[Rfam]
Description: Shown here is a 108-nucleotide sequence from Nicotiana sylvestris, a member of the family "MIR6152 microRNA precursor family". The source organism's lineage runs through Eukaryota, Viridiplantae, Streptophyta, Tracheophyta and Nicotiana. The family's consensus secondary structure was predicted with RNAalifold.
RNA sequence: UAGACAGAUUAUUGUAUUCGACUGUAUUCACAUCGUGAAAUAGCGCAAUUCAUGGUCUAUUCAACUGUUUUUAAACGGAAAGUGAAUCAAUUAACAUAAUAAACUCCU
Numbered sequence: 001u002a003g004a005c006a007g008a009u010u011a012u013u014g015u016a017u018u019c020g021a022c023u024g025u026a027u028u029c030a031c032a033u034c035g036u037g038a039a040a041u042a043g044c045g046c047a048a049u050u051c052a053u054g055g056u057c058u059a060u061u062c063a064a065c066u067g068u069u070u071u072u073a074a075a076c077g078g079a080a081a082g083u084g085a086a087u088c089a090a091u092u093a094a095c096a097u098a099a100u101a102a103a104c105u106c107c108u
Base pairs, nucleotide, nucleotide: 003106004105009102010101011100012099013098014097015096017094018093020092021091023089024088026087027086028085029084030083031082034077035076036075037071038070039069040068041067042066043065